[Rfam]
RNA sequence: UUGCCUUAAACUAAUGAGUAAGGAAAACAAAGCAAGCAGUGGGAGCUGCUUGCAGCACUCAUUCUGAUGUGCAAGAAUUUUUGUAGGGGUUAUAGGCUGGCCUUGAGUAGACGCUGCUUACUUAUGCAGAACUCUUAAAGGCGGGCCUCCCAAUCCC
Dot-bracket structure: ...(((((..........)))))........((((((((......))))))))................................(((((...(((((.(..((.((.((...((((........))))..)).)).))..).)))))....)))))
Numbered sequence: 001u002u003g004c005c006u007u008a009a010a011c012u013a014a015u016g017a018g019u020a021a022g023g024a025a026a027a028c029a030a031a032g033c034a035a036g037c038a039g040u041g042g043g044a045g046c047u048g049c050u051u052g053c054a055g056c057a058c059u060c061a062u063u064c065u066g067a068u069g070u071g072c073a074a075g076a077a078u079u080u081u082u083g084u085a086g087g088g089g090u091u092a093u094a095g096g097c098u099g100g101c102c103u104u105g106a107g108u109a110g111a112c113g114c115u116g117c118u119u120a121c122u123u124a125u126g127c128a129g130a131a132c133u134c135u136u137a138a139a140g141g142c143g144g145g146c147c148u149c150c151c152a153a154u155c156c157c
Stems, first nucleotide, its partner, number of pairs: 004023005032053008086157005094148005100142001103139002106136002109133002114129004

Shown here is a 157-nucleotide RNA from Phaseolus vulgaris, a member of the family "U12 minor spliceosomal RNA".
Pairs were carried over by alignment from the consensus structure.
The source organism's lineage runs through Eukaryota, Euphyllophyta, Papilionoideae, Phaseoleae and Phaseolus.
It is annotated as a spliceosomal small nuclear RNA.